[Rfam]
RNA sequence: GCGGCUGUAGCUCAGUUGGCUAGAGCGUCUGCUUGCCAUGCAGAAGGUCGGGGGUUCGAGUCCCCUCAGCCGCU
Numbered sequence: 001g002c003g004g005c006u007g008u009a010g011c012u013c014a015g016u017u018g019g020c021u022a023g024a025g026c027g028u029c030u031g032c033u034u035g036c037c038a039u040g041c042a043g044a045a046g047g048u049c050g051g052g053g054g055u056u057c058g059a060g061u062c063c064c065c066u067c068a069g070c071c072g073c074u
Stems, first nucleotide, its partner, number of pairs: 001073007010026004028044005050066005
Rfam assigns this 74-nucleotide RNA from bacterium HR41 to the family "tRNA". It is annotated as a transfer RNA.